This 63-nucleotide RNA from Thalictrum thalictroides belongs to the Rfam family "Small nucleolar RNA Z105". A reference for the family is Chen et al. (2003), "The high diversity of snoRNAs in plants: identification and comparative study of 120 snoRNA genes from Oryza sativa", Nucleic Acids Res. The family's RNA type in Rfam is C/D-box small nucleolar RNA. Rfam 15.1 lists 621 matches to the family in 204 species. Lineage of the source: Eukaryota > Streptophyta > Streptophytina > Ranunculales > Thalictrum.

[Rfam]
RNA sequence: GCGAGAUGAUGAUGAUCAACCGAUAAAUUUCAUGAAUGGAAAAAAUCCUCCUACUCAUUCUGA
Numbered sequence: 001g002c003g004a005g006a007u008g009a010u011g012a013u014g015a016u017c018a019a020c021c022g023a024u025a026a027a028u029u030u031c032a033u034g035a036a037u038g039g040a041a042a043a044a045a046u047c048c049u050c051c052u053a054c055u056c057a058u059u060c061u062g063a
Base pairs, nucleotide, nucleotide: 006058007057008056009055031039